[Rfam]
RNA sequence: GUGGCUGUGAUGAUUGGCGCAGGGGUACGGACCUCAGCUGAAUCAUGGGAGCUGAAUGUGAACUUCACCCUAACUUCCUGUACGUGGCGGGAUACUUGAGGGACGUUCAUAUGACAACAGAGCCUUAAUCUGAGCCGC
Numbered sequence: 001g002u003g004g005c006u007g008u009g010a011u012g013a014u015u016g017g018c019g020c021a022g023g024g025g026u027a028c029g030g031a032c033c034u035c036a037g038c039u040g041a042a043u044c045a046u047g048g049g050a051g052c053u054g055a056a057u058g059u060g061a062a063c064u065u066c067a068c069c070c071u072a073a074c075u076u077c078c079u080g081u082a083c084g085u086g087g088c089g090g091g092a093u094a095c096u097u098g099a100g101g102g103a104c105g106u107u108c109a110u111a112u113g114a115c116a117a118c119a120g121a122g123c124c125u126u127a128a129u130c131u132g133a134g135c136c137g138c
Base pairs, nucleotide, nucleotide: 001138002137003136004135005134
Small nucleolar RNA SNORD94: a 138-nucleotide RNA sequence from Xenopus laevis.
Rfam links the family to the GO terms RNA processing and nucleolus.
The literature on the family includes a 2003 paper in Nucleic Acids Res by Vitali et al., "Identification of 13 novel human modification guide RNAs".